Eukaryotic large subunit ribosomal RNA: a 428-nucleotide part of an RNA from Dreissena polymorpha. The match comes from Rfam's covariance-model search (2994 bits). Pairs were carried over by alignment from the consensus structure, which is taken from published work.

RNA sequence: CGACCUCGGAUCAGACGAGAUUACCCGCUGAACUUAAGCAUAUCAGUAAGCGGAGGAAAAGAAACUAACGAGGAUUCCCUCAGUAACGGCGAGUGAAGCGGGAAGAGCCCAGCACCGAAUCCCCGGCUCAGACGGGCCGCGGGAAAUGUGGUGUAUAGGCGGCCGAUUGGCGUCUCCGACCGGUCUUCGAGUCCUCCUGAUCGUGGCCUUGCCCAGAGCGGGUGUCAGGCCCAUGGCGGGACUCGGUCGGGGCGCCUUCGAGCCGCCUCGGAGUCGGGUUGCUUGGGAAUGCAGCCCUAAGCGGGUGGUAAACUCCAUCUAAGGCUAAAUACUGGCACGAGUCCGAUAGCGGACAAGUACCGUGAGGGAAAGUUGAAAAGAACUUUGAAGAGAGAGUUCAAGAGUACGUGAAACCGCACAGAGUCAAA
Dot-bracket structure: .......................((((((.....((....))......))))).).........((....))...((((......((.....)).....))))..((((...(((((.((((((((((......))))).))))..).)))))....((((((.((.......(((((((.((((((...(.((.(......).)))......(...)..((.......))......))))))..))))))).....))..))))))........(((((((........))))))).....(((((........)))))..)))).................................((....))...............((((....))))..................................
Taxonomically the source falls in Dreissena (Eukaryota, Mollusca, Euheterodonta, Dreissenoidea).